[Rfam]
RNA sequence: GGUCACGAGCGCCAGCGCGAACCCCCGGGUGGCUGGCCGGCAACCCUCCUCCGCGGCGGGGUGCCCCGGGUGAUGACCGGGGCGCGACCCGGCACCGGCUGGGCGCGUCAAGCGCGGACG
Numbered sequence: 001g002g003u004c005a006c007g008a009g010c011g012c013c014a015g016c017g018c019g020a021a022c023c024c025c026c027g028g029g030u031g032g033c034u035g036g037c038c039g040g041c042a043a044c045c046c047u048c049c050u051c052c053g054c055g056g057c058g059g060g061g062u063g064c065c066c067c068g069g070g071u072g073a074u075g076a077c078c079g080g081g082g083c084g085c086g087a088c089c090c091g092g093c094a095c096c097g098g099c100u101g102g103g104c105g106c107g108u109c110a111a112g113c114g115c116g117g118a119c120g
Base pairs, nucleotide, nucleotide: 001078002077003076004075009038011037012036013035014034015033016032021030022029039065040064041063044061045060046059048056049055081109082108083107084106085105086104088102089101
RNA: SAM (S-adenosyl methionine) riboswitch aptamer
Organism: Quadrisphaera sp. DSM 44207